[Rfam]
RNA sequence: GUGCCGUGAUGUAACUGUCAACACAUCAUUCCGAAGCAGAAUUGUGUGGAGACUUUUCGUAACUGAGCACC
Numbered sequence: 001g002u003g004c005c006g007u008g009a010u011g012u013a014a015c016u017g018u019c020a021a022c023a024c025a026u027c028a029u030u031c032c033g034a035a036g037c038a039g040a041a042u043u044g045u046g047u048g049g050a051g052a053c054u055u056u057u058c059g060u061a062a063c064u065g066a067g068c069a070c071c
Stems, first nucleotide, its partner, number of pairs: 001070004
This 71-nucleotide RNA from Eurypyga helias belongs to the Rfam family "Small nucleolar RNA SNORD63". It scores 59 bits against the family's covariance model. From the family's description: snoRNA U63 is found in both humans and mice. Gene Ontology terms of the family: nucleolus and RNA processing. By type it is a C/D-box small nucleolar RNA. The base pairs follow the family's consensus structure, which was predicted with PFOLD.